[Rfam]
RNA sequence: CGCACACGGAGUGUCUCUCCUAACCCUAAAUACGGUCCUCCUCCUGUACUGAACGUUCGCUGUUUUUCCCUUUCUGGCUUUUCAGUGAACUACAGGAGGGGUUUGAAGUGGCGGCCGGGAACCCUGAAAAAAAGCCAAGAUGUUCACUCCGUGGUGCUCAGCGUCCCUUCGGGAACACCGCGAAUCCCCCGCCGUGGUCAGCUCGGCUGCCGCGAAGAGUUCGUCUCUGUUGCUCCGGUGGUUUCAUGUCGGGACUCGGUAACUGAGCAGAGUAAAACUGAGCACGGGCGAUUCUACCGGAUCUGACGGUGGUCCGGCUCGAAAGCCCGAGCUCAAACACCC
Number, nucleotide and partner (000 for none) at each position: 001c153002g000003c000004a000005c000006a152007c151008g150009g149010a148011g147012u146013g145014u000015c000016u000017c000018u000019c000020c000021u000022a000023a000024c000025c000026c000027u000028a000029a000030a000031u000032a000033c000034g000035g000036u000037c000038c000039u000040c099041c098042u097043c096044c095045u000046g000047u000048a000049c000050u000051g000052a000053a000054c000055g090056u089057u088058c087059g086060c085061u084062g083063u000064u000065u000066u000067u000068c000069c000070c000071u000072u000073u140074c139075u138076g136077g135078c134079u132080u131081u130082u000083c062084a061085g060086u059087g058088a057089a056090c055091u000092a000093c000094a000095g044096g043097a042098g041099g040100g000101g000102u000103u000104u000105g000106a000107a000108g000109u000110g000111g000112c000113g000114g000115c000116c000117g000118g000119g000120a000121a000122c000123c000124c000125u000126g000127a000128a000129a000130a081131a080132a079133a000134g078135c077136c076137a000138a075139g074140a073141u000142g000143u000144u000145c013146a012147c011148u010149c009150c008151g007152u006153g001154g000155u000156g000157c267158u266159c265160a264161g263162c000163g255164u254165c253166c252167c251168u000169u000170c248171g247172g000173g000174a000175a000176c240177a239178c238179c237180g236181c000182g000183a000184a000185u000186c000187c000188c000189c000190c000191g000192c000193c214194g213195u212196g211197g210198u000199c209200a208201g207202c206203u000204c000205g000206g202207c201208u200209g199210c197211c196212g195213c194214g193215a000216a228217g227218a226219g225220u000221u000222c000223g000224u000225c219226u218227c217228u216229g000230u000231u000232g000233c000234u000235c000236c180237g179238g178239u177240g176241g000242u000243u000244u000245c000246a000247u171248g170249u000250c000251g167252g166253g165254a164255c163256u000257c000258g000259g000260u000261a000262a000263c161264u160265g159266a158267g157268c000269a000270g000271a000272g000273u000274a000275a000276a000277a000278c000279u000280g334281a333282g332283c331284a000285c329286g328287g327288g326289c325290g000291a000292u000293u000294c000295u000296a000297c000298c321299g320300g314301a313302u312303c311304u000305g000306a000307c000308g000309g000310u000311g303312g302313u301314c300315c000316g000317g000318c000319u000320c299321g298322a000323a000324a000325g289326c288327c287328c286329g285330a000331g283332c282333u281334c280335a000336a000337a000338c000339a000340c000341c000342c000
A member of the RNA family "Vertebrate telomerase RNA" from Liparis tanakae, 342 nucleotides long. Lineage of the source: Eukaryota > Bilateria > Deuterostomia > Clupeocephala > Liparis. Rfam classes the family as a non-coding RNA gene. Clan: Telomerase clan. Rfam links the family to the GO terms telomerase catalytic core complex, telomere maintenance via telomerase and telomerase activity.